[Rfam]
RNA sequence: GUUUCUAAUGAUGAAACAUUCAAUUCUCCUGAGCUUAUUGAUGCUGAAAAUCUGGAGACCUGAACUGAAGAACA
Numbered sequence: 001g002u003u004u005c006u007a008a009u010g011a012u013g014a015a016a017c018a019u020u021c022a023a024u025u026c027u028c029c030u031g032a033g034c035u036u037a038u039u040g041a042u043g044c045u046g047a048a049a050a051u052c053u054g055g056a057g058a059c060c061u062g063a064a065c066u067g068a069a070g071a072a073c074a
Stems, first nucleotide, its partner, number of pairs: 003072004
RNA: Small nucleolar RNA Z159/U59